RNA sequence: AUGCCACAGAGAUGAAUACGGAUCCCAAAUAUUGAUUCAUCCUUCUCAGUCUAUCAGAUGGGUUAUAUUUUUAUUCCAAACUGAUCAUAUGGGGAUGAUACAUCA
Numbered sequence: 001a002u003g004c005c006a007c008a009g010a011g012a013u014g015a016a017u018a019c020g021g022a023u024c025c026c027a028a029a030u031a032u033u034g035a036u037u038c039a040u041c042c043u044u045c046u047c048a049g050u051c052u053a054u055c056a057g058a059u060g061g062g063u064u065a066u067a068u069u070u071u072u073a074u075u076c077c078a079a080a081c082u083g084a085u086c087a088u089a090u091g092g093g094g095a096u097g098a099u100a101c102a103u104c105a
Stems, first nucleotide, its partner, number of pairs: 037098005053085005059079001
Shown here is a 105-nucleotide sequence from Taxus chinensis, a member of the family "Small nucleolar RNA snoR99". The family's RNA type in Rfam is H/ACA-box small nucleolar RNA. A reference for the family is Marker et al. (2002), "Experimental RNomics: identification of 140 candidates for small non-messenger RNAs in the plant Arabidopsis thaliana", Curr Biol. NCBI's taxonomy places the organism under Eukaryota, Streptophyta, Embryophyta, Conifers II, Taxus. Gene Ontology terms of the family: RNA processing and nucleolus. The family has 9 seed sequences and 733 matches in Rfam 15.1.